[Rfam]
RNA sequence: UUGUUAUCACGAAAGGCAGAGGGAUUAGACCCGCAGAAGCCUUAGCAACCCUACGCCUGUAGAAGGUGCUAAAUUCUACCGUUAUACGGACAGAUAACGC
Numbered sequence: 001u002u003g004u005u006a007u008c009a010c011g012a013a014a015g016g017c018a019g020a021g022g023g024a025u026u027a028g029a030c031c032c033g034c035a036g037a038a039g040c041c042u043u044a045g046c047a048a049c050c051c052u053a054c055g056c057c058u059g060u061a062g063a064a065g066g067u068g069c070u071a072a073a074u075u076c077u078a079c080c081g082u083u084a085u086a087c088g089g090a091c092a093g094a095u096a097a098c099g100c
Base pairs, nucleotide, nucleotide: 002099003098004097005096006095007094008093013043014042015041016040017039021032022031023030026078027077028076029075044070045069046068047067049066050065051062052061053060054059074092079089080088081087082086

This 100-nucleotide RNA from Pustulibacterium marinum belongs to the Rfam family "SAM riboswitch aptamer (S box leader)". Pairs were carried over by alignment from the consensus structure, which is taken from published work. Taxonomically the source falls in Pustulibacterium (Bacteria, Pseudomonadati, Flavobacteriales, Flavobacteriaceae). A search with the family's covariance model found it, with a score of 76 bits.